RNA sequence: CCACACUUGUCGGGGUGCCCUGCGAAAUGCAAGGGCUGAGACCAUGGCUUAGGCCAAUAGACGGAACCCGCUGCACCUGAUCAGGUUAGAACCUGCGUAGGAAUCGAGUGAUAAACGACG
Numbered sequence: 001c002c003a004c005a006c007u008u009g010u011c012g013g014g015g016u017g018c019c020c021u022g023c024g025a026a027a028u029g030c031a032a033g034g035g036c037u038g039a040g041a042c043c044a045u046g047g048c049u050u051a052g053g054c055c056a057a058u059a060g061a062c063g064g065a066a067c068c069c070g071c072u073g074c075a076c077c078u079g080a081u082c083a084g085g086u087u088a089g090a091a092c093c094u095g096c097g098u099a100g101g102a103a104u105c106g107a108g109u110g111a112u113a114a115a116c117g118a119c120g
Stems, first nucleotide, its partner, number of pairs: 006108004011070004016064001017036005043063001045061001076101004082095004
The family of this 120-nucleotide sequence from Simiduia aestuariiviva is "TPP riboswitch aptamer (THI element)". A search with the family's covariance model found it, with a score of 61 bits.